[Rfam]
RNA sequence: GGGUGAUCACGCCGCCGGGCGUGACAGGAUGUGCGAUGGUCGGGCCGCCACG
Numbered sequence: 001g002g003g004u005g006a007u008c009a010c011g012c013c014g015c016c017g018g019g020c021g022u023g024a025c026a027g028g029a030u031g032u033g034c035g036a037u038g039g040u041c042g043g044g045c046c047g048c049c050a051c052g
Base pairs, nucleotide, nucleotide: 005025007024008023009022010021011020012019034052035051037050038049039048040047